This 120-nucleotide RNA sequence from Castor canadensis belongs to the Rfam family "Small nucleolar RNA SNORA32".
[Rfam]
RNA sequence: AAAUAAUAAUAAAAAAAAUAGAAUGCAGUUUCUCAUUUGCUGUGGACAUGACUAUAAAAAUUUUUCCCACUAGGUUUAUCAUAUAUUACCUUGUUAGCAAUCAAUCUAUUGGGAACAACA
Numbered sequence: 001a002a003a004u005a006a007u008a009a010u011a012a013a014a015a016a017a018a019u020a021g022a023a024u025g026c027a028g029u030u031u032c033u034c035a036u037u038u039g040c041u042g043u044g045g046a047c048a049u050g051a052c053u054a055u056a057a058a059a060a061u062u063u064u065u066c067c068c069a070c071u072a073g074g075u076u077u078a079u080c081a082u083a084u085a086u087u088a089c090c091u092u093g094u095u096a097g098c099a100a101u102c103a104a105u106c107u108a109u110u111g112g113g114a115a116c117a118a119c120a
Stems, first nucleotide, its partner, number of pairs: 004051001006049002010045001011043001025040004066113004073106004084099001086097001

Rfam classes the family as an H/ACA-box small nucleolar RNA.
ACA32 is a member of the H/ACA class of snoRNA that guide the sites of modification of uridines to pseudouridines.